[Rfam]
RNA sequence: UAUUGAAGUUUUAUAUGCCGUCGUAUAUCCUCGAUAAUAUGGAUCGAAAGUUUCUACCGGGACACCGUAAAUGUUCUGACUAUGAAGGCAGAUUUCUGUAAA
Numbered sequence: 001u002a003u004u005g006a007a008g009u010u011u012u013a014u015a016u017g018c019c020g021u022c023g024u025a026u027a028u029c030c031u032c033g034a035u036a037a038u039a040u041g042g043a044u045c046g047a048a049a050g051u052u053u054c055u056a057c058c059g060g061g062a063c064a065c066c067g068u069a070a071a072u073g074u075u076c077u078g079a080c081u082a083u084g085a086a087g088g089c090a091g092a093u094u095u096c097u098g099u100a101a102a
Stems, first nucleotide, its partner, number of pairs: 018088002021085005031047005058078007

This 102-nucleotide sequence from Virgibacillus sp. SK37 belongs to the Rfam family "Purine riboswitch aptamer".
Rfam describes the family as follows. Riboswitches are metabolite binding domains within certain messenger RNAs that serve as precision sensors for their corresponding targets.
Taxonomically the source falls in Virgibacillus (Bacteria, Bacillota, Bacilli, Bacillaceae).
The base pairs follow the family's consensus structure, which is taken from published work.
The match comes from Rfam's covariance-model search (81 bits).